[Rfam]
Group II catalytic intron D1-D4-5: a 204-nucleotide RNA from Carnobacterium sp. AT7. The sequence is in the family's curated seed alignment. Taxonomically the source falls in Carnobacterium (Bacteria, Bacillati, Lactobacillales, Carnobacteriaceae). About the family: Group II introns are found in rRNA, tRNA and mRNA of organelles in fungi, plants and protists, and also in mRNA in bacteria. Rfam links the family to the GO term Group II intron splicing. For this family Rfam cites "Group II introns: structure and catalytic versatility of large natural ribozymes" (Lehmann and Schmidt, Crit Rev Biochem Mol Biol, 2003).

Nucleotides: 204
Stems, first nucleotide, its partner, number of pairs: 018053006031043002054196004064109004068101006075094005116192005124183006130154003137146002159176007
Number, partner (000 for none) and nucleotide at each position: 001000g002000a003000g004000a005000a006000c007000u008000g009000a010000u011000u012000a013000a014000u015000u016000g017000a018053a019052a020051g021050c022049u023048g024000g025000a026000a027000u028000g029000a030000g031043a032042g033000a034000g035000u036000a037000a038000c039000g040000a041000c042032u043031u044000g045000a046000a047000a048023c049022g050021g051020c052019u053018u054196c055195c056194c057193u058000a059000a060000u061000c062000c063000u064109c065108c066107g067106a068101u069100a070099u071098g072097c073096g074000u075094u076093u077092a078091a079090a080000u081000a082000g083000g084000u085000g086000a087000a088000a089000a090079u091078u092077u093076a094075a095000u096073c097072g098071u099070a100069u101068a102000a103000a104000g105000c106067u107066c108065g109064g110000u111000g112000a113000a114000g115000u116192c117191a118190g119189c120188u121000g122000a123000a124183a125182a126181a127180a128179g129178c130154c131153g132152u133000a134000a135000a136000u137146a138145a139000g140000a141000c142000a143000a144000g145138u146137u147000c148000u149000u150000a151000u152132a153131c154130g155000a156000a157000a158000a159176a160175g161174a162173u163172c164171c165170a166000g167000a168000g169000g170165u171164g172163g173162a174161u175160c176159u177000c178129g179128c180127u181126u182125u183124u184000g185000a186000u187000a188120g189119g190118c191117u192116g193057g194056g195055g196054g197000u198000c199000u200000u201000a202000u203000a204000a